Actinobacteria sRNA Ms_IGR-5: a 193-nucleotide RNA sequence from Streptomyces sp. DvalAA-14. The organism belongs to Streptomyces, within Bacteria. By type it is a small RNA.
RNA sequence: ACACACGAAGGGAGGUGGUCUGAAGCAUGAGUUGCAGUCGGACACGUGAGGUGACUGCGGGCUAGCACCGCGCACUCGGCGUGCAAAGUGCUCGCCAAUCCCACGCAGUACACCCGACCCGCGGGCUCGUCGGACUUGUCCGGCCGGUGCUCGGAGCCGCAAGGCUCCGGGGAGAGCCCGCGGGUCGUUCGUG
Numbered sequence: 001a002c003a004c005a006c007g008a009a010g011g012g013a014g015g016u017g018g019u020c021u022g023a024a025g026c027a028u029g030a031g032u033u034g035c036a037g038u039c040g041g042a043c044a045c046g047u048g049a050g051g052u053g054a055c056u057g058c059g060g061g062c063u064a065g066c067a068c069c070g071c072g073c074a075c076u077c078g079g080c081g082u083g084c085a086a087a088g089u090g091c092u093c094g095c096c097a098a099u100c101c102c103a104c105g106c107a108g109u110a111c112a113c114c115c116g117a118c119c120c121g122c123g124g125g126c127u128c129g130u131c132g133g134a135c136u137u138g139u140c141c142g143g144c145c146g147g148u149g150c151u152c153g154g155a156g157c158c159g160c161a162a163g164g165c166u167c168c169g170g171g172g173a174g175a176g177c178c179c180g181c182g183g184g185u186c187g188u189u190c191g192u193g
Stems, first nucleotide, its partner, number of pairs: 015058005060096003064092005072084003115187013129148005